The record is a 387-nucleotide part of an RNA from Melioribacter roseus, which matches "Bacterial large subunit ribosomal RNA" in Rfam. Taxonomically the source falls in Melioribacter roseus (Bacteria, Ignavibacteria, Ignavibacteriales, Melioribacteraceae). It scores 2898 bits against the family's covariance model.

RNA sequence: GAUAAUGGCGAUGAAAAAUCGCCACGCCGAAAAUCUAAGGUUUCCUGAGCAAUGUUAAUCAUCUCAGGGUUAGUCGGACCCUAAGCCGAGGCUGAAAGGCGUAGGCGAUGGAAAACAGGCGAAAAUUCCUGUACCUGGUACAAAUCGUUUGACCGUAAGGAGGGACGCAGAAGUGAAAGGCCAGCCGCCUGUCGGAUUAGGUGGUCUAAGCGUGUAGAUGGAAGAUGUAGGCAAAUCCGCAUCUUCUUAACAUCGAGACGCGAACGGGAGUCCUUUGGACGCAAACUGGCCCUAAGCAUGCUGCCGAGAAAAUCUUCGUACGGGAGAUUUGUAUCAGACCGUACCGCAAACCGACACAGGUAGAUGGGAUGAGAAUUCUAAGGCGCU
Numbered sequence: 001g002a003u004a005a006u007g008g009c010g011a012u013g014a015a016a017a018a019u020c021g022c023c024a025c026g027c028c029g030a031a032a033a034u035c036u037a038a039g040g041u042u043u044c045c046u047g048a049g050c051a052a053u054g055u056u057a058a059u060c061a062u063c064u065c066a067g068g069g070u071u072a073g074u075c076g077g078a079c080c081c082u083a084a085g086c087c088g089a090g091g092c093u094g095a096a097a098g099g100c101g102u103a104g105g106c107g108a109u110g111g112a113a114a115a116c117a118g119g120c121g122a123a124a125a126u127u128c129c130u131g132u133a134c135c136u137g138g139u140a141c142a143a144a145u146c147g148u149u150u151g152a153c154c155g156u157a158a159g160g161a162g163g164g165a166c167g168c169a170g171a172a173g174u175g176a177a178a179g180g181c182c183a184g185c186c187g188c189c190u191g192u193c194g195g196a197u198u199a200g201g202u203g204g205u206c207u208a209a210g211c212g213u214g215u216a217g218a219u220g221g222a223a224g225a226u227g228u229a230g231g232c233a234a235a236u237c238c239g240c241a242u243c244u245u246c247u248u249a250a251c252a253u254c255g256a257g258a259c260g261c262g263a264a265c266g267g268g269a270g271u272c273c274u275u276u277g278g279a280c281g282c283a284a285a286c287u288g289g290c291c292c293u294a295a296g297c298a299u300g301c302u303g304c305c306g307a308g309a310a311a312a313u314c315u316u317c318g319u320a321c322g323g324g325a326g327a328u329u330u331g332u333a334u335c336a337g338a339c340c341g342u343a344c345c346g347c348a349a350a351c352c353g354a355c356a357c358a359g360g361u362a363g364a365u366g367g368g369a370u371g372a373g374a375a376u377u378c379u380a381a382g383g384c385g386c387u
Stems, first nucleotide, its partner, number of pairs: 006024006025385004033365004039345002044068006053061002075341003080111002085106003089102001091100003115132005135337011154322002159317005167304004173297002179291005184205006206266001210261004217254003222245007230238002268282001270280003351360002367379003